Shown here is a 71-nucleotide RNA sequence from Herbaspirillum sp. YR522, a member of the family "Betaproteobacteria toxic small RNA".
The base pairs follow the family's consensus structure, which was predicted with WAR.
It scores 53 bits against the family's covariance model.
Overexpression in amino aid rich medium attenuates growth, suggesting role in repressing amino acid intake and metabolism.
[Rfam]
RNA sequence: UGUCUCCUCCAAUCUCCUCCUUAAGAAAUUGGAUUGAAGCCCGCAGCCAAUAGGCUCGCGGGCUUUUUUUU
Numbered sequence: 001u002g003u004c005u006c007c008u009c010c011a012a013u014c015u016c017c018u019c020c021u022u023a024a025g026a027a028a029u030u031g032g033a034u035u036g037a038a039g040c041c042c043g044c045a046g047c048c049a050a051u052a053g054g055c056u057c058g059c060g061g062g063c064u065u066u067u068u069u070u071u
Stems, first nucleotide, its partner, number of pairs: 008033005013026002038064007